The family of this 75-nucleotide sequence from Populus trichocarpa is "Plastid-ycf2 5UTR RNA". About the family: Plastid ycf2 is a non-coding RNA (ncRNA) recognised in plastids. The base pairs follow the family's consensus structure, which was predicted with LocARNA. The family's RNA type in Rfam is cis-regulatory element. A search with the family's covariance model found it, with a score of 80 bits.
RNA sequence: AUGCAUCUAGUAAGAAUUGAACCUACGAAUUCGCCAGUUAUGAGUUGGGCGUUUUAACUAUUUAACCAUAGAUGC
Dot-bracket structure: ..((((((.(((.(.......).))).............(((.((((((.(.......).)))))))))))))))
Numbered sequence: 001a002u003g004c005a006u007c008u009a010g011u012a013a014g015a016a017u018u019g020a021a022c023c024u025a026c027g028a029a030u031u032c033g034c035c036a037g038u039u040a041u042g043a044g045u046u047g048g049g050c051g052u053u054u055u056a057a058c059u060a061u062u063u064a065a066c067c068a069u070a071g072a073u074g075c
Stems, first nucleotide, its partner, number of pairs: 003075006010026003014022001040069003044066006051059001